[Rfam]
RNA sequence: UAUGAGGUUGGUGCAAAAGUAAUUGAGGCUUUUACCAUUGCUUUUAAUGGUAAAAGCCUCAAUUACUUUUGCAGCAACCUCAUA
Dot-bracket structure: ((((((((((.(((((((((((((((((((((((((((((....))))))))))))))))))))))))))))).))))))))))
This 84-nucleotide RNA sequence from Aotus nancymaae belongs to the Rfam family "mir-548 microRNA precursor family". Taxonomically the source falls in Aotus (Eukaryota, Craniata, Haplorrhini, Simiiformes).